[Rfam]
RNA sequence: CCACAGAAUGCGUCCAGUAUCAAAAUCACAUCAAAGAGAAUACGGUGGAUUUUGUAUGAGACGCAUUCCGUGGC
Numbered sequence: 001c002c003a004c005a006g007a008a009u010g011c012g013u014c015c016a017g018u019a020u021c022a023a024a025a026u027c028a029c030a031u032c033a034a035a036g037a038g039a040a041u042a043c044g045g046u047g048g049a050u051u052u053u054g055u056a057u058g059a060g061a062c063g064c065a066u067u068c069c070g071u072g073g074c
Stems, first nucleotide, its partner, number of pairs: 001073004006068009017057003021054007029047004
A member of the RNA family "lsy-6 microRNA precursor family" from Caenorhabditis briggsae, 74 nucleotides long.
The family has 2 seed sequences and 4 matches in Rfam 15.1.
Gene Ontology terms of the family: RISC complex and miRNA-mediated post-transcriptional gene silencing.
The sequence is in the family's curated seed alignment.